[Rfam]
RNA sequence: UUGUAAGCUCAAAGCCACAGCAGAAGUGCUUAUGGCACGUCCCUGUCAGAUUUCAACAAAUCCGCAAAUGCUGCU
Numbered sequence: 001u002u003g004u005a006a007g008c009u010c011a012a013a014g015c016c017a018c019a020g021c022a023g024a025a026g027u028g029c030u031u032a033u034g035g036c037a038c039g040u041c042c043c044u045g046u047c048a049g050a051u052u053u054c055a056a057c058a059a060a061u062c063c064g065c066a067a068a069u070g071c072u073g074c075u
Base pairs, nucleotide, nucleotide: 014041016039019075020074021073022072023071025069026038027037028036047064049062050061051060052059053058
The family of this 75-nucleotide RNA from Alligator sinensis is "Mammalian CPEB3 ribozyme". For this family Rfam cites "A genomewide search for ribozymes reveals an HDV-like sequence in the human CPEB3 gene" (Salehi-Ashtiani et al., Science, 2006). From the family's description: The mammalian CPEB3 ribozyme is a self cleaving RNA located in the second intron of the CPEB3 gene which belongs to a family of genes regulating messenger RNA polyadenylation. Taxonomically the source falls in Alligator (Eukaryota, Bilateria, Vertebrata, Sarcopterygii).